[Rfam]
RNA: mir-981 microRNA precursor family
RNA sequence: CCUCGCUGAACUCGGGUUUCGUACGCAGCGGGCUGUUGAACUCCUAAUACUAGUUCGUUGUCGACGAAACCUGCAUACGGCGUGA
Number, nucleotide and partner (000 for none) at each position: 001c000002c084003u000004c082005g081006c080007u000008g000009a000010a000011c000012u000013c073014g072015g071016g070017u069018u068019u067020c066021g065022u000023a000024c000025g000026c000027a000028g000029c000030g056031g055032g054033c053034u052035g000036u000037u000038g000039a000040a000041c000042u000043c000044c000045u000046a000047a000048u000049a000050c000051u000052a034053g033054u032055u031056c030057g000058u000059u000060g000061u000062c000063g000064a000065c021066g020067a019068a018069a017070c016071c015072u014073g013074c000075a000076u000077a000078c000079g000080g006081c005082g004083u000084g002085a000